[Rfam]
RNA sequence: UUGCACACAGGUUAGUAUUACCUGUGUGUAAGUAAGUAGCAUGUAGCA
Dot-bracket structure: (((((((((((.........))))))))))).................
Numbered sequence: 001u002u003g004c005a006c007a008c009a010g011g012u013u014a015g016u017a018u019u020a021c022c023u024g025u026g027u028g029u030a031a032g033u034a035a036g037u038a039g040c041a042u043g044u045a046g047c048a
Stems, first nucleotide, its partner, number of pairs: 001031011
The family of this 48-nucleotide RNA from Anaerostipes sp. 494a is "ssNA-helicase RNA". Taxonomically the source falls in Anaerostipes (Bacteria, Bacillati, Bacillota, Lachnospirales). Pairs were carried over by alignment from the consensus structure, which is taken from published work.